[Rfam]
The record is a 262-nucleotide RNA from Otolemur garnettii, which matches "RNase MRP" in Rfam. Rfam describes the family as follows. RNase MRP is an enzymatically active ribonucleoprotein with two distinct roles in eukaryotes. Its Rfam clan is "RNaseP clan". Rfam 15.1 lists 3,510 matches to the family in 2,315 species. The base pairs follow the family's consensus structure, which is taken from published work. The organism belongs to Otolemur, within Eukaryota.
RNA sequence: GGUCGUGCUGAAGGCCUGUUUCCUAGGCUGCACAUGGGGGACUGGUUCCUUGUUCUGCCUAGGGGAAAGUUCUCAAACCUCUGGCAGAGAGUGCCGCGUGUACACGCACAUAGACAUCCCUCCACUUCUCACUGUUAAAUCCUGCCAAGAAGCGAAUCUCGCUGAGCUGCAUGAUGCAGAGGCAUCAUCAGUCAGCUCCACUAGUUAACAGGCAGUGCAUGUCUUAGCGCACCAACCACAUAGGGCUCGUUCUCAACGCGGC
Numbered sequence: 001g002g003u004c005g006u007g008c009u010g011a012a013g014g015c016c017u018g019u020u021u022c023c024u025a026g027g028c029u030g031c032a033c034a035u036g037g038g039g040g041a042c043u044g045g046u047u048c049c050u051u052g053u054u055c056u057g058c059c060u061a062g063g064g065g066a067a068a069g070u071u072c073u074c075a076a077a078c079c080u081c082u083g084g085c086a087g088a089g090a091g092u093g094c095c096g097c098g099u100g101u102a103c104a105c106g107c108a109c110a111u112a113g114a115c116a117u118c119c120c121u122c123c124a125c126u127u128c129u130c131a132c133u134g135u136u137a138a139a140u141c142c143u144g145c146c147a148a149g150a151a152g153c154g155a156a157u158c159u160c161g162c163u164g165a166g167c168u169g170c171a172u173g174a175u176g177c178a179g180a181g182g183c184a185u186c187a188u189c190a191g192u193c194a195g196c197u198c199c200a201c202u203a204g205u206u207a208a209c210a211g212g213c214a215g216u217g218c219a220u221g222u223c224u225u226a227g228c229g230c231a232c233c234a235a236c237c238a239c240a241u242a243g244g245g246c247u248c249g250u251u252c253u254c255a256a257c258g259c260g261g262c
Base pairs, nucleotide, nucleotide: 002262003261004260005259006258007257009255010254011253014213015212016211017210018209019208022063023062024061025060026059027058028057037051038050039049040048041047068247069246071245072244073243083095084094085093086092096111098109099108100107101106113186114185120181121180122179125176129174130173131172142169144167145166152162153161154160155159215232216231217230218229220227